[Rfam]
RNA sequence: AAAAGGAGCAAUAUCAACCCUCUUGAUAGAACAAGAAUUUGGUUAUUGCUCCUUUUUUUUU
Numbered sequence: 001a002a003a004a005g006g007a008g009c010a011a012u013a014u015c016a017a018c019c020c021u022c023u024u025g026a027u028a029g030a031a032c033a034a035g036a037a038u039u040u041g042g043u044u045a046u047u048g049c050u051c052c053u054u055u056u057u058u059u060u061u
Stems, first nucleotide, its partner, number of pairs: 002055012015042001021036005

Plastid-psbA-3 3UTR RNA: a 61-nucleotide RNA from Nepenthes mirabilis. Plastid psbA-3 is a non-coding RNA (ncRNA) present in plastids. It was identified in inverted repeat sequences in the 3 prime untranslate region (3UTR) of photosystem II quinone-binding protein (psbA). By type it is a cis-regulatory element. Its Rfam clan is "Plastid-psbA 3UTR RNA clan". For this family Rfam cites "Retrograde signaling in plants: A critical review focusing on the GUN pathway and beyond" (Richter et al., Plant Commun, 2023). The organism belongs to Nepenthes, within Eukaryota. It is one of the family's seed sequences.